[Rfam]
Nucleotides: 191
Stems, first nucleotide, its partner, number of pairs: 003189008017029003031171002033160002035089004093135002140156005162174003
Number, partner (000 for none) and nucleotide at each position: 001000c002000g003189u004188u005187u006186c007185c008184u009183u010182c011000g012000g013000g014000g015000c016000a017029g018028g019027g020000u021000g022000g023000a024000a025000g026000u027019c028018c029017c030000u031171a032170c033160c034159g035089g036088c037087g038086g039000u040000g041000a042000u043000c044000g045000c046000g047000g048000u049000u050000c051000c052000a053000u054000g055000u056000g057000c058000g059000g060000c061000g062000g063000a064000a065000u066000g067000c068000c069000g070000c071000g072000g073000a074000a075000c076000c077000g078000g079000c080000g081000u082000c083000a084000g085000c086038c087037c088036g089035u090000g091000a092000c093135c094134c095000g096000g097000g098000c099000c100000g101000a102000a103000a104000a105000c106000g107000g108000a109000u110000g111000g112000c113000a114000c115000a116000u117000u118000g119000g120000c121000c122000g123000g124000a125000c126000g127000g128000c129000g130000g131000c132000a133000c134094g135093g136000u137000g138000g139000a140156u141155c142154c143153g144152g145000u146000g147000c148000a149000a150000u151000u152144c153143c154142g155141g156140a157000g158000c159034c160033g161000a162174c163173a164172g165000u166000a167000a168000c169000a170032g171031u172164c173163u174162g175000g176000a177000u178000g179000g180000g181000a182010g183009a184008a185007g186006g187005a188004a189003g190000c191000g